[Rfam]
RNA sequence: UUCUUAUCAAGAGUAGGCAGAGGGACGAGCCCGAUGAAGCCCGGCAACCGACUUAUUUUAUAAGCACGGUGCUAAUUCUCGCAGCAAAUAUGCUGGGAGAUAAGGA
Numbered sequence: 001u002u003c004u005u006a007u008c009a010a011g012a013g014u015a016g017g018c019a020g021a022g023g024g025a026c027g028a029g030c031c032c033g034a035u036g037a038a039g040c041c042c043g044g045c046a047a048c049c050g051a052c053u054u055a056u057u058u059u060a061u062a063a064g065c066a067c068g069g070u071g072c073u074a075a076u077u078c079u080c081g082c083a084g085c086a087a088a089u090a091u092g093c094u095g096g097g098a099g100a101u102a103a104g105g106a
Stems, first nucleotide, its partner, number of pairs: 001106008013042001016041003022032003026081004043073004048069002052064003077098001082095005
The family of this 106-nucleotide RNA sequence from Priestia taiwanensis is "SAM riboswitch aptamer (S box leader)". Pairs were carried over by alignment from the consensus structure, which is taken from published work.